[Rfam]
RNA sequence: UGACAACUAUGAUGAAAGGUUUUGUCUGUGUGUAACAUAUGUAAUUACUAAAUGAAGACAACAGUCCUUCUAAACUGAUGUUGCA
Numbered sequence: 001u002g003a004c005a006a007c008u009a010u011g012a013u014g015a016a017a018g019g020u021u022u023u024g025u026c027u028g029u030g031u032g033u034a035a036c037a038u039a040u041g042u043a044a045u046u047a048c049u050a051a052a053u054g055a056a057g058a059c060a061a062c063a064g065u066c067c068u069u070c071u072a073a074a075c076u077g078a079u080g081u082u083g084c085a
Stems, first nucleotide, its partner, number of pairs: 001085002004083004
Dot-bracket structure: ((.((((........................................................................))))))